[Rfam]
RNA sequence: ACAAAGCACUUUUGUAAGUCGUUCUGGAUAAGAGCACCUGCUAAAUGGCAUAAA
Numbered sequence: 001a002c003a004a005a006g007c008a009c010u011u012u013u014g015u016a017a018g019u020c021g022u023u024c025u026g027g028a029u030a031a032g033a034g035c036a037c038c039u040g041c042u043a044a045a046u047g048g049c050a051u052a053a054a
Stems, first nucleotide, its partner, number of pairs: 013043001014041003021035005
Shown here is a 54-nucleotide RNA from Electrophorus electricus, a member of the family "UnaL2 LINE 3' element". The family's RNA type in Rfam is cis-regulatory element. The match comes from Rfam's covariance-model search (56 bits).